[Rfam]
RNA sequence: UGACGGGGGCUCACACAAGCGGUGGAGCAUGUGGUUUAAUUCGAAGCAACGCGAAGAACCUUACCCAGGCUGACAUGCAGGGGUAGGCUGGUAAAGCCGGCUGAUUACCUUCGGGUGUGACCUGCACAGGUGUUGCAUGGCUGUCGUCAGCUCGUGUCGUGAGAUGUCGGGUUAAGUCCCUUAACGAGCGAAACCCCUACCAUUAGUUACCAACGGGUAAAGCCGGGAACUCUAGUGGGACUGCCGUUGUCAAAACGGAGGAAGGUGGGGACGACGUCAAGUCAUCAUGGCCCUUACGCCUGGGGCUACACACGUGCUACAAUGGCCGGUACAGAGAGAAGCAGAGCCGCGAGGCGAAGCAGACCUCAGAAAGCCGGCCCCAGUUCGGAUUGCAGGCUGCAACUCGCCUGCAUGAAGUUGGAAUCGCUAGUAAUCGCGGAUCAGCUACGCCGCGGUGAAUAUGUUCCUGAGCCUUGUACACACCGCCCGUCAAGCCACGAAAGCUGAGGGCGCCCGAAGUCGCUAGUCCAACCGCAAGGAGGGCGGCGCCGAAGGCGAGCUCGGUGAUUGGGACUAAGUCGUAACAAGG
Numbered sequence: 001u002g003a004c005g006g007g008g009g010c011u012c013a014c015a016c017a018a019g020c021g022g023u024g025g026a027g028c029a030u031g032u033g034g035u036u037u038a039a040u041u042c043g044a045a046g047c048a049a050c051g052c053g054a055a056g057a058a059c060c061u062u063a064c065c066c067a068g069g070c071u072g073a074c075a076u077g078c079a080g081g082g083g084u085a086g087g088c089u090g091g092u093a094a095a096g097c098c099g100g101c102u103g104a105u106u107a108c109c110u111u112c113g114g115g116u117g118u119g120a121c122c123u124g125c126a127c128a129g130g131u132g133u134u135g136c137a138u139g140g141c142u143g144u145c146g147u148c149a150g151c152u153c154g155u156g157u158c159g160u161g162a163g164a165u166g167u168c169g170g171g172u173u174a175a176g177u178c179c180c181u182u183a184a185c186g187a188g189c190g191a192a193a194c195c196c197c198u199a200c201c202a203u204u205a206g207u208u209a210c211c212a213a214c215g216g217g218u219a220a221a222g223c224c225g226g227g228a229a230c231u232c233u234a235g236u237g238g239g240a241c242u243g244c245c246g247u248u249g250u251c252a253a254a255a256c257g258g259a260g261g262a263a264g265g266u267g268g269g270g271a272c273g274a275c276g277u278c279a280a281g282u283c284a285u286c287a288u289g290g291c292c293c294u295u296a297c298g299c300c301u302g303g304g305g306c307u308a309c310a311c312a313c314g315u316g317c318u319a320c321a322a323u324g325g326c327c328g329g330u331a332c333a334g335a336g337a338g339a340a341g342c343a344g345a346g347c348c349g350c351g352a353g354g355c356g357a358a359g360c361a362g363a364c365c366u367c368a369g370a371a372a373g374c375c376g377g378c379c380c381c382a383g384u385u386c387g388g389a390u391u392g393c394a395g396g397c398u399g400c401a402a403c404u405c406g407c408c409u410g411c412a413u414g415a416a417g418u419u420g421g422a423a424u425c426g427c428u429a430g431u432a433a434u435c436g437c438g439g440a441u442c443a444g445c446u447a448c449g450c451c452g453c454g455g456u457g458a459a460u461a462u463g464u465u466c467c468u469g470a471g472c473c474u475u476g477u478a479c480a481c482a483c484c485g486c487c488c489g490u491c492a493a494g495c496c497a498c499g500a501a502a503g504c505u506g507a508g509g510g511c512g513c514c515c516g517a518a519g520u521c522g523c524u525a526g527u528c529c530a531a532c533c534g535c536a537a538g539g540a541g542g543g544c545g546g547c548g549c550c551g552a553a554g555g556c557g558a559g560c561u562c563g564g565u566g567a568u569u570g571g572g573a574c575u576a577a578g579u580c581g582u583a584a585c586a587a588g589g
Stems, first nucleotide, its partner, number of pairs: 001480002003477003007474007015464002019427005024320001026318008034309002040055004064304007076126006086102007106117004129293002132291004138287002140282003143278001145276002150189006156165003169180003195270004200238007210227002214225003241261002244258005324379007336367003341360002346355003386417001391412007433456007483588001485585001488581002493575002496572001498570003503565006511557004519550001521548004526544004532539002
Dot-bracket structure: (((((.(((((((.((..((((((.((((((((((....((((........))))........(((((((.....((((((....(((((((...)))))))...((((....))))...))))))..((.((((..((((((.((...(((((((((....)))...(((......)))...)))))).....((((.(((((((...((..(((......)))))....)))))))..((.(((((.....))))).)).....))))....)).).)))...))))))))....)))))))...)).)))))))).)...(((((((.....(((..((...(((....)))...))....))).....)))))))......(....(((((((........)))))))....).....))))).....(((((((..........)))))))......))...)))))))))).))..(.(..((...((.(.(((..((((((..((((....(.((((.((((..((....)).)))))))).)...))))..))))))..))).).))....))...)..).
Rfam assigns this 589-nucleotide part of an RNA from an uncultured bacterium to the family "Bacterial small subunit ribosomal RNA".
The sequence is in the family's curated seed alignment.
Clan: SSU clan.